[Rfam]
RNA sequence: CCAUGGAUAUUCUCACCAUUCUAGUUUCACAAUAAUCGGGGGUGGACUAAACACUCACUACAGUAAAGCCAUGCAUGUGUCCCAGAUUUAUUUCUUUUCCUAGUUCAGGUUUUAUAAAUGUUGGUAGCAAAC
Numbered sequence: 001c002c003a004u005g006g007a008u009a010u011u012c013u014c015a016c017c018a019u020u021c022u023a024g025u026u027u028c029a030c031a032a033u034a035a036u037c038g039g040g041g042g043u044g045g046a047c048u049a050a051a052c053a054c055u056c057a058c059u060a061c062a063g064u065a066a067a068g069c070c071a072u073g074c075a076u077g078u079g080u081c082c083c084a085g086a087u088u089u090a091u092u093u094c095u096u097u098u099c100c101u102a103g104u105u106c107a108g109g110u111u112u113u114a115u116a117a118a119u120g121u122u123g124g125u126a127g128c129a130a131a132c
Base pairs, nucleotide, nucleotide: 004057005056016045017044018043019042020041021040022038024036025035026034068125069124070123071122073121074120082109083108085106086105088103089102090101

The record is a 132-nucleotide RNA sequence from Erinaceus europaeus, which matches "Small nucleolar RNA SNORA72" in Rfam.
Lineage of the source: Eukaryota > Euteleostomi > Dipnotetrapodomorpha > Boreoeutheria > Erinaceus.
U72 is a member of the H/ACA class of snoRNAs.
Rfam links the family to the GO terms RNA processing and nucleolus.